[Rfam]
RNA sequence: CGGUAGAUGCACCCUGAUUUACACUCCCUGGCCGCAAGCUGGGGAGUUUUUUA
Dot-bracket structure: .(((......)))...........((((((((.....))))))))........
Shown here is a 53-nucleotide RNA from Pegethrix bostrychoides, a member of the family "Nitrogen stress-induced RNA 1".
By type it is a small RNA.
On this family, see Ionescu et al., J Mol Biol 2010: "Heterocyst-specific transcription of NsiR1, a non-coding RNA encoded in a tandem array of direct repeats in cyanobacteria".
Lineage of the source: Bacteria > Bacillati > Cyanobacteriota > Pegethrix > Pegethrix bostrychoides.